[Rfam]
RNA: potC RNA
RNA sequence: UUUUUAAUGCCCACUAUCUUUCUUUUUUAGGAUUCUUACCCUUUUCUAAAAAAUGAUUGUGGGCAUGCAAAA
Numbered sequence: 001u002u003u004u005u006a007a008u009g010c011c012c013a014c015u016a017u018c019u020u021u022c023u024u025u026u027u028u029a030g031g032a033u034u035c036u037u038a039c040c041c042u043u044u045u046c047u048a049a050a051a052a053a054u055g056a057u058u059g060u061g062g063g064c065a066u067g068c069a070a071a072a
Stems, first nucleotide, its partner, number of pairs: 007066008028048005